The record is a 237-nucleotide RNA from Oscillatoria sp. FACHB-1407, which matches "Group II catalytic intron D1-D4-6" in Rfam. Group II introns are found in rRNA, tRNA and mRNA of organelles in fungi, plants and protists, and also in mRNA in bacteria. Lineage of the source: Bacteria > Cyanobacteriota > Cyanophyceae > Oscillatoriophycideae > Oscillatoria. Gene Ontology term of the family: Group II intron splicing. A search with the family's covariance model found it, with a score of 142 bits.
[Rfam]
RNA sequence: AAAGUCCCGGUUCUGGAAGCCUUGGCAAGGCACCAGGUAUUGAGUGUUGCGUCAGCGGAGGCAACAACGUUGGCGAAGCGUACACAAGGAGGUAAUGGGCUGCAAUGCGGCAGCGUGAAGGGAUUGAGCCCCGCUAUGAAAUGAAACUGUGGAUGCCGACGCUGUUAGCAAAGCGGAAGGCAACACCAAGAGAGCCAAUUGCCACGGCUUUGGAGGGUCCACCGGGGUCAAAGACCG
Numbered sequence: 001a002a003a004g005u006c007c008c009g010g011u012u013c014u015g016g017a018a019g020c021c022u023u024g025g026c027a028a029g030g031c032a033c034c035a036g037g038u039a040u041u042g043a044g045u046g047u048u049g050c051g052u053c054a055g056c057g058g059a060g061g062c063a064a065c066a067a068c069g070u071u072g073g074c075g076a077a078g079c080g081u082a083c084a085c086a087a088g089g090a091g092g093u094a095a096u097g098g099g100c101u102g103c104a105a106u107g108c109g110g111c112a113g114c115g116u117g118a119a120g121g122g123a124u125u126g127a128g129c130c131c132c133g134c135u136a137u138g139a140a141a142u143g144a145a146a147c148u149g150u151g152g153a154u155g156c157c158g159a160c161g162c163u164g165u166u167a168g169c170a171a172a173g174c175g176g177a178a179g180g181c182a183a184c185a186c187c188a189a190g191a192g193a194g195c196c197a198a199u200u201g202c203c204a205c206g207g208c209u210u211u212g213g214a215g216g217g218u219c220c221a222c223c224g225g226g227g228u229c230a231a232a233g234a235c236c237g
Stems, first nucleotide, its partner, number of pairs: 012037005019031004023204004040088002044085004048080002050075008060065001125231001126229001128228006149222006155181003160175004186216002191211006